Small nucleolar RNA ACA64: a 126-nucleotide sequence from Pomatorhinus ruficollis. Pairs were carried over by alignment from the consensus structure, which was predicted with WAR. Gene Ontology terms of the family: RNA processing and nucleolus. The match comes from Rfam's covariance-model search (80 bits).
[Rfam]
RNA sequence: GCGGUCUGAAAAUCAUUCGGGGUCUGCUGGUGGCCCCGGGUGAGAUAACGGCGCCCAUAGCAUCGGGAACAUUAAGCUUAUUUCCCACGGCCGUGCGUGGGGAAUGAAACCCAUGUUCCCAUAAGC
Numbered sequence: 001g002c003g004g005u006c007u008g009a010a011a012a013u014c015a016u017u018c019g020g021g022g023u024c025u026g027c028u029g030g031u032g033g034c035c036c037c038g039g040g041u042g043a044g045a046u047a048a049c050g051g052c053g054c055c056c057a058u059a060g061c062a063u064c065g066g067g068a069a070c071a072u073u074a075a076g077c078u079u080a081u082u083u084c085c086c087a088c089g090g091c092c093g094u095g096c097g098u099g100g101g102g103a104a105u106g107a108a109a110c111c112c113a114u115g116u117u118c119c120c121a122u123a124a125g126c
Stems, first nucleotide, its partner, number of pairs: 006051003010046001013043004021035004066119001068117005078107005086099003